This 111-nucleotide RNA from Treponema vincentii belongs to the Rfam family "TD-1 RNA". The base pairs follow the family's consensus structure, which is taken from published work. Rfam 15.1 lists 147 matches to the family in 9 species.
RNA sequence: GUUAACCGAUGAGUUUGCCACAAGGCAAACUCACUUAUUGACGUGUGCGCUACCGCGCACGAAUUGAACAACUUCCAAAGUUGAUACUUUGUUCAGUUGUUCAAUUUUAAG
Number, nucleotide and partner (000 for none) at each position: 001g000002u000003u000004a000005a000006c000007c000008g000009a000010u000011g032012a031013g030014u029015u028016u027017g026018c025019c024020a000021c000022a000023a000024g019025g018026c017027a016028a015029a014030c013031u012032c011033a000034c000035u000036u000037a000038u000039u000040g000041a000042c000043g000044u000045g060046u059047g058048c057049g056050c055051u000052a000053c000054c000055g050056c049057g048058c047059a046060c045061g000062a000063a105064u104065u103066g102067a101068a100069c099070a098071a097072c096073u095074u000075c000076c091077a090078a089079a088080g087081u086082u000083g000084a000085u000086a081087c080088u079089u078090u077091g076092u000093u000094c000095a073096g072097u071098u070099g069100u068101u067102c066103a065104a064105u063106u000107u000108u000109a000110a000111g000